[Rfam]
RNA sequence: CCGACGUGGGCAUCCAGGACUGGUCUCCUGGCUCUGCCCUGGUGGCUGAUGGGAGCGUAGCUCUGGCUGAGACGUUCAGGCCCGUUCCACGCCGUCGGACACUAAGCUCCGCCCCCGGCCUCCGGCUGGUGAGGGCGGGCGUCCUGCAUAUUCCUACAUCCUCCCAGAGCCCUGAGGGCCGUGACUGGGGGGCCAAACCAUGCAGGGCACAGAC
Number, nucleotide and partner (000 for none) at each position: 001c098002c097003g096004a095005c094006g093007u000008g039009g038010g037011c036012a035013u000014c031015c030016a029017g000018g025019a024020c000021u000022g000023g000024u019025c018026u000027c000028c000029u016030g015031g014032c000033u000034c000035u012036g011037c010038c009039c008040u000041g000042g090043u089044g088045g087046c000047u000048g000049a000050u000051g083052g082053g081054a000055g077056c000057g075058u074059a000060g000061c069062u000063c000064u000065g000066g000067c000068u000069g061070a000071g000072a000073c000074g058075u057076u000077c055078a000079g000080g000081c053082c052083c051084g000085u000086u000087c045088c044089a043090c042091g000092c000093c006094g005095u004096c003097g002098g001099a000100c000101a000102c000103u000104a000105a000106g000107c000108u000109c000110c000111g000112c000113c000114c000115c000116c000117g000118g000119c000120c000121u000122c000123c000124g000125g000126c000127u000128g000129g000130u000131g000132a000133g000134g000135g000136c000137g000138g000139g000140c000141g000142u000143c206144c205145u204146g203147c202148a201149u200150a000151u000152u000153c000154c000155u000156a000157c000158a000159u000160c192161c191162u190163c189164c188165c187166a000167g000168a000169g179170c178171c177172c176173u000174g000175a000176g172177g171178g170179c169180c000181g000182u000183g000184a000185c000186u000187g165188g164189g163190g162191g161192g160193c000194c000195a000196a000197a000198c000199c000200a149201u148202g147203c146204a145205g144206g143207g000208c000209a000210c000211a000212g000213a000214c000
A member of the RNA family "Small nucleolar RNA SNORA73 family" from Menidia menidia, 214 nucleotides long. Rfam's curators write: U17 (SNORA73A and SNORA73B) also known as E1 belongs to the H/ACA class of small nucleolar RNAs (snoRNAs). Gene Ontology terms of the family: nucleolus and RNA processing. The base pairs follow the family's consensus structure, which is taken from published work. It is annotated as an H/ACA-box small nucleolar RNA. A reference for the family is Enright et al. (1996), "5'ETS rRNA processing facilitated by four small RNAs: U14, E3, U17, and U3", RNA.